The family of this 129-nucleotide RNA sequence from Lachnospiraceae bacterium NK3A20 is "THF (Tetrahydrofolate) riboswitch aptamer". Gene Ontology term of the family: tetrahydrofolate metabolic process. The base pairs follow the family's consensus structure, which is taken from published work. Rfam 15.1 lists 747 matches to the family in 747 species. Rfam describes the family as follows. Tetrahydrofolate (THF) riboswitch was first reported for Ames et al. as an RNA motif in 5' untranslated (5'-UTR)regions of folate transport and biosynthesis genes in Firmicutes genomes. A reference for the family is Ames et al. (2010), "A eubacterial riboswitch class that senses the coenzyme tetrahydrofolate", Chem Biol.
RNA sequence: GGCAGAGUAGGAACUGAUGCGUCAAGUGCCGGCUGAACAGGGAGUUGUCAGUCGGACGAAAUACGCGGAGGCCGGGAAGAAAUUCUCCGACGUCUGACGUAUGCGGUAUCAGGUCCGCAUCCCGCUGCU
Dot-bracket structure: (((((....(((.(((((((((...((.((((((((...[[[.[...))))))))))...((((..................................))))))).)))))).))).].]]]..)))))

Lineage of the source: Bacteria > Bacillati > Bacillota > Clostridia > Lachnospiraceae.